[Rfam]
RNA sequence: CGCAACGAUCUGCAACAUGUGAUCAUAAUAUAUAUAUAUAUAUAUAUAUAUUAUGAUCACAUGUUGCAGAUCGUUGUG
Dot-bracket structure: .(((((.(((((((((((((((.(((((..((((..(....)....))))))))).))))))))))))))).))))).
Numbered sequence: 001c002g003c004a005a006c007g008a009u010c011u012g013c014a015a016c017a018u019g020u021g022a023u024c025a026u027a028a029u030a031u032a033u034a035u036a037u038a039u040a041u042a043u044a045u046a047u048a049u050a051u052u053a054u055g056a057u058c059a060c061a062u063g064u065u066g067c068a069g070a071u072c073g074u075u076g077u078g
Stems, first nucleotide, its partner, number of pairs: 002077005008071015024055005031050004037042001